[Rfam]
RNA sequence: GCACCUGAAUCUUUCCCGUGCCUUGCUGGGCAGUGUGGGUUUGGGGACAGAUGGUGCUACACUAGCUGCAGAGGAAAUCCAGGCAGGUUACUUUCCAUUUACAUUGCAACUUGCCUCUACAACUCUGCCACAUUU
Numbered sequence: 001g002c003a004c005c006u007g008a009a010u011c012u013u014u015c016c017c018g019u020g021c022c023u024u025g026c027u028g029g030g031c032a033g034u035g036u037g038g039g040u041u042u043g044g045g046g047a048c049a050g051a052u053g054g055u056g057c058u059a060c061a062c063u064a065g066c067u068g069c070a071g072a073g074g075a076a077a078u079c080c081a082g083g084c085a086g087g088u089u090a091c092u093u094u095c096c097a098u099u100u101a102c103a104u105u106g107c108a109a110c111u112u113g114c115c116u117c118u119a120c121a122a123c124u125c126u127g128c129c130a131c132a133u134u135u
Base pairs, nucleotide, nucleotide: 001057002056003055004054005053013047014046015045016044017043018042021039022038068128069127070126071125072124073123081116082115083114084113085112086111087110088109096106097105

Description: Shown here is a 135-nucleotide RNA sequence from Ornithorhynchus anatinus, a member of the family "Small nucleolar RNA SNORA55". From the family's description: ACA55 is a member of the H/ACA class of snoRNA that guide the sites of modification of uridines to pseudouridines. Rfam classes the family as an H/ACA-box small nucleolar RNA. The sequence is in the family's curated seed alignment. The family's consensus secondary structure was predicted with PFOLD.